[Rfam]
RNA sequence: CGAUCGGAUAGCACUGCAAAGUGUGAAAUCGUCUGCAAUCCGGACAGCACCGUACGGUGUGACGCAUUUUUCAACCGGCUGCUUUGCAGUCUCUCA
Numbered sequence: 001c002g003a004u005c006g007g008a009u010a011g012c013a014c015u016g017c018a019a020a021g022u023g024u025g026a027a028a029u030c031g032u033c034u035g036c037a038a039u040c041c042g043g044a045c046a047g048c049a050c051c052g053u054a055c056g057g058u059g060u061g062a063c064g065c066a067u068u069u070u071u072c073a074a075c076c077g078g079c080u081g082c083u084u085u086g087c088a089g090u091c092u093c094u095c096a
Stems, first nucleotide, its partner, number of pairs: 011024005030064004048059004077091006
RNA: DUF3577 RNA